[Rfam]
RNA sequence: UCCAUUGUGAGGUGGAAUCUGAAGGAAGCGGUAGGUAAAAUCUCGGUCUGAGGAACACGAACCAGAUAAGAGGCUGAAUUGGAGCGGACAAGUUUGCAUGACAAAACGAAGUCCAACACUACCCGAACUCCAUACAGUAAACUUAAAGAUAGACGAGAUGAAGGUUAUCGUU
Numbered sequence: 001u002c003c004a005u006u007g008u009g010a011g012g013u014g015g016a017a018u019c020u021g022a023a024g025g026a027a028g029c030g031g032u033a034g035g036u037a038a039a040a041u042c043u044c045g046g047u048c049u050g051a052g053g054a055a056c057a058c059g060a061a062c063c064a065g066a067u068a069a070g071a072g073g074c075u076g077a078a079u080u081g082g083a084g085c086g087g088a089c090a091a092g093u094u095u096g097c098a099u100g101a102c103a104a105a106a107c108g109a110a111g112u113c114c115a116a117c118a119c120u121a122c123c124c125g126a127a128c129u130c131c132a133u134a135c136a137g138u139a140a141a142c143u144u145a146a147a148g149a150u151a152g153a154c155g156a157g158a159u160g161a162a163g164g165u166u167a168u169c170g171u172u
Stems, first nucleotide, its partner, number of pairs: 001016006028172001031169001035165002040159006046150004064144002067141001073138003080132005086114004092107004
Annotation: A member of the RNA family "Group II catalytic intron D1-D4-3" from Thermoanaerobacterium thermosaccharolyticum, 172 nucleotides long. About the family: Group II introns are found in rRNA, tRNA and mRNA of organelles in fungi, plants and protists, and also in mRNA in bacteria. The source organism's lineage runs through Bacteria, Clostridia, Thermoanaerobacterales, Thermoanaerobacterium and Thermoanaerobacterium thermosaccharolyticum.